The family of this 169-nucleotide RNA from Wenjunlia vitaminophila is "c-di-AMP riboswitch aptamer (ydaO/yuaA leader)". The organism belongs to Wenjunlia, within Bacteria.

RNA sequence: CGUGCGCCAUCGCUUAAUUCCGGAGCACCCCGCCGGGUGCCCGGGAGCCGGGGAACCACCACCCCGCGUUCUACGCGGGGACCUGGGGUGCAUCGGGCCGUCAGGCCCGUAGGAGACCUUCCUGCUCCGAACCCGUCAGCUAACCCGGUCGGCGAGAGGGAAGGAAAGG
Numbered sequence: 001c002g003u004g005c006g007c008c009a010u011c012g013c014u015u016a017a018u019u020c021c022g023g024a025g026c027a028c029c030c031c032g033c034c035g036g037g038u039g040c041c042c043g044g045g046a047g048c049c050g051g052g053g054a055a056c057c058a059c060c061a062c063c064c065c066g067c068g069u070u071c072u073a074c075g076c077g078g079g080g081a082c083c084u085g086g087g088g089u090g091c092a093u094c095g096g097g098c099c100g101u102c103a104g105g106c107c108c109g110u111a112g113g114a115g116a117c118c119u120u121c122c123u124g125c126u127c128c129g130a131a132c133c134c135g136u137c138a139g140c141u142a143a144c145c146c147g148g149u150c151g152g153c154g155a156g157a158g159g160g161a162a163g164g165a166a167a168g169g
Base pairs, nucleotide, nucleotide: 011154012153013152014151018046019045020044021043022042023041047149048148049147050146051145052144057085058084086134087133088132094109095108096107097106112128113127114126115125